Rfam assigns this 42-nucleotide RNA sequence from Gammacoronavirus galli to the family "Infectious bronchitis virus D-RNA". Rfam links the family to the GO terms viral genome replication and viral genome packaging. It is annotated as a cis-regulatory element. About the family: This family represents a cis-regulatory element known as defective RNA or D-RNA. This region is thought to be essential for viral replication and efficient packaging. On this family, see Dalton et al., J Virol 2001: "cis-acting sequences required for coronavirus infectious bronchitis virus defective-RNA replication and packaging".
RNA sequence: GGAAGAUAGGCAUGUAGUUUGAUUACCUACAUGUCUAUCGCC
Numbered sequence: 001g002g003a004a005g006a007u008a009g010g011c012a013u014g015u016a017g018u019u020u021g022a023u024u025a026c027c028u029a030c031a032u033g034u035c036u037a038u039c040g041c042c
Base pairs, nucleotide, nucleotide: 001042002041005039006038007037008036009035010034011033012032013031014030015029016028017027